Record summary
The record is a 107-nucleotide RNA from Oryza punctata, which matches "MIR1861 microRNA precursor family" in Rfam. Pairs were carried over by alignment from the consensus structure, which was predicted with RNAalifold.
RNA sequence: AUAUUCUUAAGCCCGAUCUUGUGGCAGGAACUGAGUACUUGGUGAACUCGCUCUAUGUUCGUUCACUCGCAACACGGUUCCUGUCUUAAGAUCGAGUAUGUGAAUAU
Numbered sequence: 001a002u003a004u005u006c007u008u009a010a011g012c013c014c015g016a017u018c019u020u021g022u023g024g025c026a027g028g029a030a031c032u033g034a035g036u037a038c039u040u041g042g043u044g045a046a047c048u049c050g051c052u053c054u055a056u057g058u059u060c061g062u063u064c065a066c067u068c069g070c071a072a073c074a075c076g077g078u079u080c081c082u083g084u085c086u087u088a089a090g091a092u093c094g095a096g097u098a099u100g101u102g103a104a105u106a107u
Base pairs, nucleotide, nucleotide: 001107002106003105004104005103006102008100009099011097012096014094015093016092017091018090019089020088021087023085024084025083026082027081028080029079030078031077032076033075035073036072